A member of the RNA family "Epstein-Barr virus stable intronic sequence RNA 2" from Adiantum capillus-veneris, 72 nucleotides long. The base pairs follow the family's consensus structure. For this family Rfam cites "RNA families in Epstein-Barr virus" (Moss et al., RNA Biol, 2014). It is annotated as a non-coding RNA gene.
[Rfam]
RNA sequence: GGUACGAUUGGGGACAGGGGACCGCCGCGGUCCCGGUGGGAGGGCCGGCGGUCCCCUGCGCCCAAUCGUACC
Numbered sequence: 001g002g003u004a005c006g007a008u009u010g011g012g013g014a015c016a017g018g019g020g021a022c023c024g025c026c027g028c029g030g031u032c033c034c035g036g037u038g039g040g041a042g043g044g045c046c047g048g049c050g051g052u053c054c055c056c057u058g059c060g061c062c063c064a065a066u067c068g069u070a071c072c
Stems, first nucleotide, its partner, number of pairs: 001072009011062002016057011029046002032044003